Annotation: This 89-nucleotide sequence from Chelydra serpentina belongs to the Rfam family "Small nucleolar RNA SNORD70". The family's RNA type in Rfam is C/D-box small nucleolar RNA. snoRNA HBII-234 belongs to the C/D family of snoRNAs. For this family Rfam cites "RNomics: an experimental approach that identifies 201 candidates for novel, small, non-messenger RNAs in mouse" (Huttenhofer et al., EMBO J, 2001). It scores 84 bits against the family's covariance model. The organism belongs to Chelydra, within Eukaryota. Rfam 15.1 lists 1,085 matches to the family in 579 species.

RNA sequence: AACCCUGUUGUCAAUGAUGCAUUGGUGUUGGUACUGAAUUCUAAUGAUUUGAUUCAACAUUUCGUCACUACCACUGAGACAACAGAGAA
Numbered sequence: 001a002a003c004c005c006u007g008u009u010g011u012c013a014a015u016g017a018u019g020c021a022u023u024g025g026u027g028u029u030g031g032u033a034c035u036g037a038a039u040u041c042u043a044a045u046g047a048u049u050u051g052a053u054u055c056a057a058c059a060u061u062u063c064g065u066c067a068c069u070a071c072c073a074c075u076g077a078g079a080c081a082a083c084a085g086a087g088a089a
Stems, first nucleotide, its partner, number of pairs: 003087001005085008